Rhizobiales-2 RNA: a 102-nucleotide RNA sequence from Bradyrhizobium diazoefficiens. Pairs were carried over by alignment from the consensus structure, which is taken from published work. The organism belongs to Bradyrhizobium diazoefficiens, within Bacteria.
RNA sequence: GGGAGCGGUCAUCCCUCCCCAUCAGUCAUAUCAGGCGCGAGCGCCCAUCCACCCCAAGCGCCCAUAUGGCUCGACCCGUCCGGUUGUCCCCCCGGACGGGUC
Numbered sequence: 001g002g003g004a005g006c007g008g009u010c011a012u013c014c015c016u017c018c019c020c021a022u023c024a025g026u027c028a029u030a031u032c033a034g035g036c037g038c039g040a041g042c043g044c045c046c047a048u049c050c051a052c053c054c055c056a057a058g059c060g061c062c063c064a065u066a067u068g069g070c071u072c073g074a075c076c077c078g079u080c081c082g083g084u085u086g087u088c089c090c091c092c093c094g095g096a097c098g099g100g101u102c
Stems, first nucleotide, its partner, number of pairs: 001019005024071008034062005073102011